The record is a 51-nucleotide sequence from Cavia porcellus, which matches "mir-1302 microRNA precursor family" in Rfam. Rfam 15.1 lists 16,160 matches to the family in 135 species. The literature on the family includes a 2008 paper in Genome Res by Morin et al., "Application of massively parallel sequencing to microRNA profiling and discovery in human embryonic stem cells". The organism belongs to Cavia, within Eukaryota.
[Rfam]
RNA sequence: UUUUAGUACAAAUAUGUCCCAUGUAAUAUUCGGGACAUACUUAUGCUAAAA
Numbered sequence: 001u002u003u004u005a006g007u008a009c010a011a012a013u014a015u016g017u018c019c020c021a022u023g024u025a026a027u028a029u030u031c032g033g034g035a036c037a038u039a040c041u042u043a044u045g046c047u048a049a050a051a
Base pairs, nucleotide, nucleotide: 005047006046007045008044010042011041013039014038015037017035018034019033020032021030